The record is a 154-nucleotide sequence from Myotis myotis, which matches "U1 spliceosomal RNA" in Rfam. Its family is annotated with pre-mRNA 5'-splice site binding, mRNA 5'-splice site recognition and U1 snRNP in the Gene Ontology. Rfam 15.1 lists 40,184 matches to the family in 1,499 species. The organism belongs to Myotis, within Eukaryota. Rfam's curators write: U1 is a small nuclear RNA (snRNA) component of the spliceosome (involved in pre-mRNA splicing).

[Rfam]
RNA sequence: AUACUUAUCUGGCAGGGAGAUACUAUGAUCAGGAAGGUGGUUUUCCUAGGGUGAGGCUUACCCAUUGCCCUCUGGAUGUGCUGGCCUUUGGCAGUUUCCCCAAAUAUGGGAAACUCAACUGCGUCAUUCGUGGAAGUGGGCAGCUGUGUGCUCU
Numbered sequence: 001a002u003a004c005u006u007a008u009c010u011g012g013c014a015g016g017g018a019g020a021u022a023c024u025a026u027g028a029u030c031a032g033g034a035a036g037g038u039g040g041u042u043u044u045c046c047u048a049g050g051g052u053g054a055g056g057c058u059u060a061c062c063c064a065u066u067g068c069c070c071u072c073u074g075g076a077u078g079u080g081c082u083g084g085c086c087u088u089u090g091g092c093a094g095u096u097u098c099c100c101c102a103a104a105u106a107u108g109g110g111a112a113a114c115u116c117a118a119c120u121g122c123g124u125c126a127u128u129c130g131u132g133g134a135a136g137u138g139g140g141c142a143g144c145u146g147u148g149u150g151c152u153c154u
Stems, first nucleotide, its partner, number of pairs: 012122004016046005022041005048089004053085001055082003059078002062075002094115001095113003099109002148153001
Dot-bracket structure: ...........(((((((((.(((((..........)))))))))).((((.(.(((.((.((..........)).)).)))..)))))....((((.((.......)).))).)...)))).........................(....).